[Rfam]
RNA sequence: GCUUUCUUCCCAGGUGGUGCUGGGAGAUAAGCGAAGCCUGAUCCGGUUGCCGCCGGGUCGGGCUUCAUUCAUUUUUAAGGU
Numbered sequence: 001g002c003u004u005u006c007u008u009c010c011c012a013g014g015u016g017g018u019g020c021u022g023g024g025a026g027a028u029a030a031g032c033g034a035a036g037c038c039u040g041a042u043c044c045g046g047u048u049g050c051c052g053c054c055g056g057g058u059c060g061g062g063c064u065u066c067a068u069u070c071a072u073u074u075u076u077a078a079g080g081u
Stems, first nucleotide, its partner, number of pairs: 001032003006026002009024005034065014
The family of this 81-nucleotide sequence from Corynebacterium tapiri is "ctRNA". By type it is an antisense RNA. Its family is annotated with mRNA binding in the Gene Ontology. Pairs were carried over by alignment from the consensus structure, which is taken from published work. NCBI's taxonomy places the organism under Bacteria, Bacillati, Actinomycetota, Actinomycetes, Corynebacterium. Rfam's curators write: Rolling circle replication plasmids contain a number of mechanisms to maintain a low copy number.